[Rfam]
RNA sequence: CCAGUGUGGAUAUCCCUGGGAGGUCACACUCCUCAGGGCUCUGUCCAGGUGGCUAAGGGAGCAGAGAGCUUUGCCCCAUGAUGUACACUCCCUUCCCACAACGUGGAGAUGAACUGGGCCUCUGUCUGCUCCUGCAUAUUUCCACAGCUUCUCAGAGUCUUGCGGACAAUGAACAAGGAGACAAGCCAUGCAGUAAACAUCC
Numbered sequence: 001c002c003a004g005u006g007u008g009g010a011u012a013u014c015c016c017u018g019g020g021a022g023g024u025c026a027c028a029c030u031c032c033u034c035a036g037g038g039c040u041c042u043g044u045c046c047a048g049g050u051g052g053c054u055a056a057g058g059g060a061g062c063a064g065a066g067a068g069c070u071u072u073g074c075c076c077c078a079u080g081a082u083g084u085a086c087a088c089u090c091c092c093u094u095c096c097c098a099c100a101a102c103g104u105g106g107a108g109a110u111g112a113a114c115u116g117g118g119c120c121u122c123u124g125u126c127u128g129c130u131c132c133u134g135c136a137u138a139u140u141u142c143c144a145c146a147g148c149u150u151c152u153c154a155g156a157g158u159c160u161u162g163c164g165g166a167c168a169a170u171g172a173a174c175a176a177g178g179a180g181a182c183a184a185g186c187c188a189u190g191c192a193g194u195a196a197a198c199a200u201c202c
Stems, first nucleotide, its partner, number of pairs: 001106003005103003008046005014038003019032004049099004057092004061086001063084001065082001066079001132193006148180005157167004
Small nucleolar RNA SNORA73 family: a 202-nucleotide sequence from Tupaia belangeri. The match comes from Rfam's covariance-model search (136 bits). Rfam links the family to the GO terms RNA processing and nucleolus. Lineage of the source: Eukaryota > Deuterostomia > Sarcopterygii > Dipnotetrapodomorpha > Tupaia belangeri. The family's consensus secondary structure is taken from published work. U17 (SNORA73A and SNORA73B) also known as E1 belongs to the H/ACA class of small nucleolar RNAs (snoRNAs). Vertebrate U17 is intron-encoded and ranges in length from 200-230 nucleotides, longer than most snoRNAs. It is one of the most abundant snoRNAs in human cells and is essential for the cleavage of pre-rRNA within the 5' external transcribed spacer (ETS). This cleavage leads to the formation of 18S rRNA. Regions of the U17 RNA are complementary to rRNA and act as guides for RNA/RNA interactions, although these regions do not seem to be well conserved between organisms.